[Rfam]
RNA: Neisseria metabolic switch regulator b (RcoF1/NgncR163)
RNA sequence: CCGUCAAGCCGUUGCUAAUGACAGUUUGAUAGUUUCUCCUCUAUUUCUCCUUUGUAGACUUGGCACACAUUCCCGCGAAUGUGUGCAUUUUU
Number, nucleotide and partner (000 for none) at each position: 001c000002c000003g030004u029005c028006a027007a026008g025009c024010c000011g022012u000013u000014g000015c000016u000017a000018a000019u000020g000021a000022c011023a000024g009025u008026u007027u006028g005029a004030u003031a000032g000033u000034u000035u000036c000037u000038c000039c000040u058041c057042u056043a055044u054045u000046u000047c000048u000049c000050c000051u000052u000053u000054g044055u043056a042057g041058a040059c000060u000061u000062g000063g086064c085065a084066c083067a082068c081069a080070u079071u078072c077073c000074c000075g000076c000077g072078a071079a070080u069081g068082u067083g066084u065085g064086c063087a000088u000089u000090u000091u000092u000